RNA sequence: CACCUAACCCUGUCGGCUUCGGUCGGCAGGUAUGGUGAGAAGUCCAGUAAGACAUGAAGAUCCCAUCGUGGGGUUGUCUUACUGGCCAUAUCGGGAAACCGGUAUGUCUGGCGCAAGCCGGA
Numbered sequence: 001c002a003c004c005u006a007a008c009c010c011u012g013u014c015g016g017c018u019u020c021g022g023u024c025g026g027c028a029g030g031u032a033u034g035g036u037g038a039g040a041a042g043u044c045c046a047g048u049a050a051g052a053c054a055u056g057a058a059g060a061u062c063c064c065a066u067c068g069u070g071g072g073g074u075u076g077u078c079u080u081a082c083u084g085g086c087c088a089u090a091u092c093g094g095g096a097a098a099c100c101g102g103u104a105u106g107u108c109u110g111g112c113g114c115a116a117g118c119c120g121g122a
Stems, first nucleotide, its partner, number of pairs: 001037004009030009044085011060074005087106008107122006